[Rfam]
Nucleotides: 116
Base pairs, nucleotide, nucleotide: 002115003114004113005112006111010107011106012105013104014103015102016101017100018099019098020097021096022095023094024093025092026091027090028089029088030087031086032085033084034083035082036081037080038079039078040077041076042075043074
Number, partner (000 for none) and nucleotide at each position: 001000u002115a003114g004113g005112g006111u007000a008000a009000c010107c011106u012105c013104c014103g015102a016101c017100c018099c019098u020097c021096u022095u023094u024093a025092g026091u027090u028089c029088a030087a031086u032085c033084a034083a035082a036081u037080g038079a039078a040077c041076u042075a043074g044000a045000u046000u047000u048000u049000c050000a051000a052000a053000a054000u055000g056000a057000g058000c059000u060000u061000u062000c063000a064000u065000u066000u067000u068000g069000g070000a071000a072000a073000u074043c075042u076041a077040g078039u079038u080037c081036a082035u083034u084033u085032g086031a087030u088029u089028g090027a091026a092025c093024u094023a095022a096021a097020g098019a099018g100017g101016g102015u103014c104013g105012g106011g107010g108000c109000c110000g111006a112005c113004c114003c115002u116000a